[Rfam]
Nucleotides: 276
Stems, first nucleotide, its partner, number of pairs: 006030002012025003036046002081131002084127002090124001091122002095111002098108002138152001140151004160203003163199003210252007220238005261276002264273001
Number, partner (000 for none) and nucleotide at each position: 001000u002000g003000g004000c005000g006030c007029c008000c009000a010000a011000u012025g013024u014023g015000g016000g017000g018000c019000u020000g021000g022000a023014c024013a025012c026000u027000g028000a029007g030006g031000a032000c033000c034000c035000a036046g037045u038000g039000a040000g041000g042000g043000a044000g045037a046036c047000g048000a049000u050000g051000u052000u053000a054000u055000c056000a057000a058000a059000a060000g061000g062000a063000a064000c065000g066000c067000g068000u069000u070000c071000a072000u073000c074000c075000a076000c077000a078000u079000a080000u081131u082130u083000c084127c085126u086000c087000g088000g089000a090124u091122u092121c093000g094000c095111c096110g097000u098108g099107g100000g101000a102000g103000c104000c105000u106000g107099c108098c109000u110096c111095g112000g113000c114000a115000u116000a117000a118000a119000c120000c121092g122091a123000a124090a125000a126085a127084g128000u129000a130082a131081g132000u133000a134000a135000a136000a137000a138152u139000g140151u141150c142149c143148a144000a145000a146000u147000a148143u149142g150141g151140g152138g153000c154000a155000a156000g157000a158000a159000u160203u161202a162201a163199g164198u165197c166000a167000a168000c169000a170000u171000g172000a173000a174000c175000u176000u177000u178000a179000u180000g181000u182000u183000a184000a185000a186000c187000a188000a189000u190000u191000a192000c193000a194000g195000g196000a197165g198164g199163c200000u201162u202161u203160a204000a205000a206000g207000a208000c209000a210252u211251g212250a213249g214248g215247a216246g217000u218000a219000a220238a221237g222236g223235u224234u225000a226000a227000a228000a229000c230000u231000a232000c233000a234224g235223a236222u237221u238220u239000a240000u241000u242000u243000c244000a245000u246216u247215u248214c249213u250212u251211u252210g253000a254000u255000u256000u257000c258000a259000u260000c261276a262275a263000a264273g265000a266000a267000a268000c269000c270000u271000g272000c273264c274000c275262u276261u